The family of this 100-nucleotide RNA sequence from Pectinatus brassicae is "Pyrrolysine insertion sequence 1".
The literature on the family includes a 2005 paper in Biochimie by Theobald-Dietrich et al., "Evidence for the existence in mRNAs of a hairpin element responsible for ribosome dependent pyrrolysine insertion into proteins".
[Rfam]
RNA sequence: UAGGGUAACGAAACAUCCCUCUCAGCAGCUGGAGUAAUCGCAGCAGAUUUUCCAGGUGGCAUGAGAAAAACCGAUAGUCAUGAAGUUUCCCAGUUAAAUG
Numbered sequence: 001u002a003g004g005g006u007a008a009c010g011a012a013a014c015a016u017c018c019c020u021c022u023c024a025g026c027a028g029c030u031g032g033a034g035u036a037a038u039c040g041c042a043g044c045a046g047a048u049u050u051u052c053c054a055g056g057u058g059g060c061a062u063g064a065g066a067a068a069a070a071c072c073g074a075u076a077g078u079c080a081u082g083a084a085g086u087u088u089c090c091c092a093g094u095u096a097a098a099u100g
Stems, first nucleotide, its partner, number of pairs: 010089005016083002040060002043057002